[Rfam]
RNA sequence: UUUCGACAAAGGCAAACUUAUCGAAAGAUAAGGACGCAAAACUGAGGGUCUACAGUUCCAUACGGAGCUACGGCAGCCUGGUUACCGAA
Numbered sequence: 001u002u003u004c005g006a007c008a009a010a011g012g013c014a015a016a017c018u019u020a021u022c023g024a025a026a027g028a029u030a031a032g033g034a035c036g037c038a039a040a041a042c043u044g045a046g047g048g049u050c051u052a053c054a055g056u057u058c059c060a061u062a063c064g065g066a067g068c069u070a071c072g073g074c075a076g077c078c079u080g081g082u083u084a085c086c087g088a089a
Stems, first nucleotide, its partner, number of pairs: 012037002017032006040083004045079003048074003055068004
RNA: c-di-GMP-I riboswitch aptamer
Organism: Paenibacillus sp. GP183